The family of this 415-nucleotide part of an RNA from Trichoderma gamsii is "Ascomycota telomerase RNA".
[Rfam]
RNA sequence: GACACACAGAAGGAAGCUUGCUUGACUACAUUAAGAACAUUUAGGCUGCAUUACGCUACUCGGACCUUGGACUAGGUGAGCUCGAAGAAGGCAGCAGAUUCAUGACGGGACUGGCCAGAGGCAAAGUUCGGAAAUCGGUCCCUUUUUCGGACACCGCGGAUGCGACUCGGUGUCGAUUCUGGCUUGGAUCUGGGACCCAUCUCGAGUUGGAGUCAAAGUUUAGUGCUUGUCCAGUUCCUUGACCAAACUCAUCUGCCUUGAGUUGGACCCGCGGGCAGUCGUCAUCUGGCUCGGCUCAUUGACAUGUGCUCAGUACAACUACUAUUGGCUUGUAAGGACACACCGUAGAUGUGGGAGGCAGUCCUGGUUGUCCUCUUCCCAGAAAUGGCUGGAGGGCAACCCCCCGCUGAUGAGG
Number, nucleotide and partner (000 for none) at each position: 001g000002a000003c000004a000005c000006a000007c000008a000009g000010a000011a000012g000013g000014a000015a000016g000017c000018u000019u000020g000021c000022u000023u000024g000025a000026c000027u000028a000029c000030a000031u000032u000033a000034a000035g000036a000037a000038c000039a000040u000041u000042u000043a000044g000045g000046c000047u000048g000049c000050a000051u000052u000053a000054c000055g000056c000057u000058a000059c000060u000061c000062g000063g000064a000065c000066c000067u000068u000069g000070g000071a000072c000073u000074a000075g000076g000077u000078g000079a000080g000081c000082u000083c000084g000085a000086a000087g000088a000089a000090g000091g000092c000093a000094g000095c000096a000097g000098a000099u000100u000101c000102a000103u000104g000105a000106c000107g000108g000109g000110a000111c000112u000113g000114g000115c000116c000117a000118g000119a000120g000121g000122c000123a000124a000125a000126g000127u000128u000129c000130g000131g000132a000133a000134a000135u000136c000137g000138g000139u000140c000141c000142c000143u000144u000145u000146u000147u000148c000149g000150g000151a000152c000153a000154c000155c000156g000157c000158g000159g000160a000161u000162g000163c000164g000165a000166c000167u000168c000169g000170g000171u000172g000173u000174c000175g000176a000177u000178u000179c000180u000181g000182g000183c000184u000185u000186g000187g000188a000189u000190c000191u000192g000193g000194g214195a213196c212197c210198c209199a208200u000201c000202u000203c000204g000205a000206g000207u000208u199209g198210g197211a000212g196213u195214c194215a000216a228217a227218g226219u225220u000221u000222a000223g000224u000225g219226c218227u217228u216229g000230u000231c000232c000233a000234g000235u000236u000237c000238c000239u000240u000241g000242a000243c000244c000245a000246a000247a000248c000249u000250c000251a000252u000253c000254u000255g000256c000257c000258u000259u000260g000261a000262g000263u000264u000265g000266g000267a000268c000269c000270c000271g000272c000273g000274g000275g000276c000277a000278g000279u000280c000281g000282u000283c000284a000285u000286c000287u000288g000289g000290c000291u000292c000293g000294g000295c000296u000297c000298a000299u000300u000301g000302a000303c000304a000305u000306g000307u000308g000309c000310u000311c000312a000313g000314u000315a000316c000317a000318a000319c000320u000321a000322c000323u000324a000325u000326u000327g000328g000329c000330u000331u000332g000333u000334a000335a000336g000337g000338a000339c000340a000341c000342a000343c000344c000345g000346u000347a000348g000349a000350u000351g000352u000353g000354g000355g000356a000357g000358g000359c000360a000361g000362u000363c000364c000365u000366g000367g000368u000369u000370g000371u000372c000373c000374u000375c000376u000377u000378c000379c000380c000381a000382g000383a000384a000385a000386u000387g000388g000389c000390u000391g000392g000393a000394g000395g000396g000397c000398a000399a000400c000401c000402c000403c000404c000405c000406g000407c000408u000409g000410a000411u000412g000413a000414g000415g000
Overview:
The family's RNA type in Rfam is non-coding RNA gene. Pairs were carried over by alignment from the consensus structure.